[Rfam]
RNA sequence: AGGCCCAGAGAGAAAGGCAGGAUCUGAUCUGCAGCCUCUGUGGCAGCUGUUGAUCAGUUGUUGCCUCUCUCUUUCUCUCCG
Numbered sequence: 001a002g003g004c005c006c007a008g009a010g011a012g013a014a015a016g017g018c019a020g021g022a023u024c025u026g027a028u029c030u031g032c033a034g035c036c037u038c039u040g041u042g043g044c045a046g047c048u049g050u051u052g053a054u055c056a057g058u059u060g061u062u063g064c065c066u067c068u069c070u071c072u073u074u075c076u077c078u079c080c081g
Stems, first nucleotide, its partner, number of pairs: 008073006015066006022059001024057006032049004

This 81-nucleotide RNA from Myotis davidii belongs to the Rfam family "mir-574 microRNA precursor family". Its Rfam clan is "mir-574 microRNA precursor clan". It scores 94 bits against the family's covariance model. The family has 6 seed sequences and 4,084 matches in Rfam 15.1. The organism belongs to Myotis, within Eukaryota.